[Rfam]
RNA sequence: CGGAACCGCCGUCCGUGAUCGACACCGCGAGCCGGGGACCCGACAGCCGAGCUUUCUGGGGUGAGUCCCGCACGAGAACGGCCGCCGUAACACGUGGCGUCCGUGGAGUGGGGUAGGAGCCUUCCGCUUCCGAACCCGACAGCUAACCCGGCAGGUACACAACACUGGAAGA
Numbered sequence: 001c002g003g004a005a006c007c008g009c010c011g012u013c014c015g016u017g018a019u020c021g022a023c024a025c026c027g028c029g030a031g032c033c034g035g036g037g038a039c040c041c042g043a044c045a046g047c048c049g050a051g052c053u054u055u056c057u058g059g060g061g062u063g064a065g066u067c068c069c070g071c072a073c074g075a076g077a078a079c080g081g082c083c084g085c086c087g088u089a090a091c092a093c094g095u096g097g098c099g100u101c102c103g104u105g106g107a108g109u110g111g112g113g114u115a116g117g118a119g120c121c122u123u124c125c126g127c128u129u130c131c132g133a134a135c136c137c138g139a140c141a142g143c144u145a146a147c148c149c150g151g152c153a154g155g156u157a158c159a160c161a162a163c164a165c166u167g168g169a170a171g172a
Stems, first nucleotide, its partner, number of pairs: 001155001007029002031152006041058002059137003067113003116131004
Dot-bracket structure: (.....((...................)).((((((....((..............))(((.....(((.........................................)))..((((........))))...))).........))))))..).................